[Rfam]
RNA sequence: CUAGGUAUUUUCUCUACCUAACACUACCUAAACAUGCAAACUAGUAAUAAUUUGUGUGAAGCUUUAGGGACAAUGUAGCCUAUCUUAAAUGAUGAUGUAAGGAAAUAAAAGGAUUUUUACAUAUUUCCUUCCAGGAGCUAGUGU
Numbered sequence: 001c002u003a004g005g006u007a008u009u010u011u012c013u014c015u016a017c018c019u020a021a022c023a024c025u026a027c028c029u030a031a032a033c034a035u036g037c038a039a040a041c042u043a044g045u046a047a048u049a050a051u052u053u054g055u056g057u058g059a060a061g062c063u064u065u066a067g068g069g070a071c072a073a074u075g076u077a078g079c080c081u082a083u084c085u086u087a088a089a090u091g092a093u094g095a096u097g098u099a100a101g102g103a104a105a106u107a108a109a110a111g112g113a114u115u116u117u118u119a120c121a122u123a124u125u126u127c128c129u130u131c132c133a134g135g136a137g138c139u140a141g142u143g144u
Stems, first nucleotide, its partner, number of pairs: 002020006028067005033058008042049002081094004096121008123139001125137004